[Rfam]
This 80-nucleotide RNA from Caenorhabditis briggsae belongs to the Rfam family "lin-4 microRNA precursor family". Taxonomically the source falls in Caenorhabditis (Eukaryota, Rhabditida, Rhabditomorpha, Rhabditidae). Rfam 15.1 lists 35 matches to the family in 32 species. Pairs were carried over by alignment from the consensus structure, which was predicted with RNAalifold. Rfam's curators put it in the seed alignment.

RNA sequence: UUUCGGCCUGUUCCCUGAGACCUCAAGUGUGAGCGUUCUGAACAUGCUUCACGCCUGGGCUCUCCGGGUACCAGGACGGU
Numbered sequence: 001u002u003u004c005g006g007c008c009u010g011u012u013c014c015c016u017g018a019g020a021c022c023u024c025a026a027g028u029g030u031g032a033g034c035g036u037u038c039u040g041a042a043c044a045u046g047c048u049u050c051a052c053g054c055c056u057g058g059g060c061u062c063u064c065c066g067g068g069u070a071c072c073a074g075g076a077c078g079g080u
Stems, first nucleotide, its partner, number of pairs: 013068003017064004022059004027054006033047004